MIR8024 microRNA precursor family: an 86-nucleotide RNA sequence from Solanum tuberosum. Pairs were carried over by alignment from the consensus structure, which was predicted with RNAalifold. Rfam links the family to the GO terms RISC complex and miRNA-mediated post-transcriptional gene silencing.
RNA sequence: UUAGAAGAUUUGAAUACUUCAACUUGUAUACUUGGAGAAUUUGAAGACUUCAAUUUGCAUACUUGGAGAUUUUGAAGACUUCAUCU
Numbered sequence: 001u002u003a004g005a006a007g008a009u010u011u012g013a014a015u016a017c018u019u020c021a022a023c024u025u026g027u028a029u030a031c032u033u034g035g036a037g038a039a040u041u042u043g044a045a046g047a048c049u050u051c052a053a054u055u056u057g058c059a060u061a062c063u064u065g066g067a068g069a070u071u072u073u074g075a076a077g078a079c080u081u082c083a084u085c086u
Stems, first nucleotide, its partner, number of pairs: 002083001004081002009076006017068005025059004032053006